The family of this 94-nucleotide RNA from Hibiscus trionum is "MIR396 microRNA precursor family". NCBI's taxonomy places the organism under Eukaryota, Mesangiospermae, Gunneridae, rosids, Hibiscus. The family has 26 seed sequences and 744 matches in Rfam 15.1.
RNA sequence: CUUUGUGUUCUUCCACAGCUUUCUUGAACUGCAACUCCGUGUAAUUACAUCGUCCGUCGUUGCGGUUCAAUAAAGCUGUGGGAAGAUACAAACA
Numbered sequence: 001c002u003u004u005g006u007g008u009u010c011u012u013c014c015a016c017a018g019c020u021u022u023c024u025u026g027a028a029c030u031g032c033a034a035c036u037c038c039g040u041g042u043a044a045u046u047a048c049a050u051c052g053u054c055c056g057u058c059g060u061u062g063c064g065g066u067u068c069a070a071u072a073a074a075g076c077u078g079u080g081g082g083a084a085g086a087u088a089c090a091a092a093c094a
Stems, first nucleotide, its partner, number of pairs: 003091005013081003017077006024070004029065007